[Rfam]
RNA sequence: UUCCACAGCUACUGGUCUGCAGCUGUUCUUAAUGGUAGCAGUUGUGACACUCCUCUGUGGGGAAAAAAAAAAACUGUCAUACAAUUAAAAGCCUCUUUCUUAGCUAAAUGGAAAGUAGGCAUAUGAAUGAUAGACACAA
Numbered sequence: 001u002u003c004c005a006c007a008g009c010u011a012c013u014g015g016u017c018u019g020c021a022g023c024u025g026u027u028c029u030u031a032a033u034g035g036u037a038g039c040a041g042u043u044g045u046g047a048c049a050c051u052c053c054u055c056u057g058u059g060g061g062g063a064a065a066a067a068a069a070a071a072a073a074c075u076g077u078c079a080u081a082c083a084a085u086u087a088a089a090a091g092c093c094u095c096u097u098u099c100u101u102a103g104c105u106a107a108a109u110g111g112a113a114a115g116u117a118g119g120c121a122u123a124u125g126a127a128u129g130a131u132a133g134a135c136a137c138a139a
Stems, first nucleotide, its partner, number of pairs: 003060004018046008079128002082125002092119003095115006
RNA: Small nucleolar RNA SNORA41
Organism: Castor canadensis